[Rfam]
RNA sequence: UUAAAGUUGGGGGCACCAAUAUCUCCAUGGUGCCAUCAUCUCUCCAAGAAGGGGAUAGAUCGACGCGUCAAGAAAUCGUUUCUGUUGCCAUGGCUUCAGUAGGCAAUACGAUUGUUGCUUGCGCACAU
Numbered sequence: 001u002u003a004a005a006g007u008u009g010g011g012g013g014c015a016c017c018a019a020u021a022u023c024u025c026c027a028u029g030g031u032g033c034c035a036u037c038a039u040c041u042c043u044c045c046a047a048g049a050a051g052g053g054g055a056u057a058g059a060u061c062g063a064c065g066c067g068u069c070a071a072g073a074a075a076u077c078g079u080u081u082c083u084g085u086u087g088c089c090a091u092g093g094c095u096u097c098a099g100u101a102g103g104c105a106a107u108a109c110g111a112u113u114g115u116u117g118c119u120u121g122c123g124c125a126c127a128u
Base pairs, nucleotide, nucleotide: 006041010037012034013033014032015031016030017029067124068123070120071119072118075112076111077110078109084107085106086105087104088103089102
Small nucleolar RNA snoR111: a 128-nucleotide RNA from Leersia perrieri. Lineage of the source: Eukaryota > Magnoliopsida > Mesangiospermae > Oryzoideae > Leersia. Pairs were carried over by alignment from the consensus structure, which was predicted with WAR. A reference for the family is Marker et al. (2002), "Experimental RNomics: identification of 140 candidates for small non-messenger RNAs in the plant Arabidopsis thaliana", Curr Biol.